[Rfam]
RNA sequence: AGAAUAUAAUAAAUCGUCUCUUAACUUUUAACUAAAAAUACUAAGAACCGGCUCUUAAAUAUUUAAGAACCGGUUCUUAGUAUUUUUAGUUAAAAGUUAAGAGGCGGUUUAUAUUCC
Numbered sequence: 001a002g003a004a005u006a007u008a009a010u011a012a013a014u015c016g017u018c019u020c021u022u023a024a025c026u027u028u029u030a031a032c033u034a035a036a037a038a039u040a041c042u043a044a045g046a047a048c049c050g051g052c053u054c055u056u057a058a059a060u061a062u063u064u065a066a067g068a069a070c071c072g073g074u075u076c077u078u079a080g081u082a083u084u085u086u087u088a089g090u091u092a093a094a095a096g097u098u099a100a101g102a103g104g105c106g107g108u109u110u111a112u113a114u115u116c117c
Stems, first nucleotide, its partner, number of pairs: 002116007012109028041080007

Rfam assigns this 117-nucleotide sequence from Brassica napus to the family "MIR9563 microRNA precursor family". A search with the family's covariance model found it, with a score of 104 bits. The source organism's lineage runs through Eukaryota, Tracheophyta, Mesangiospermae, rosids and Brassica.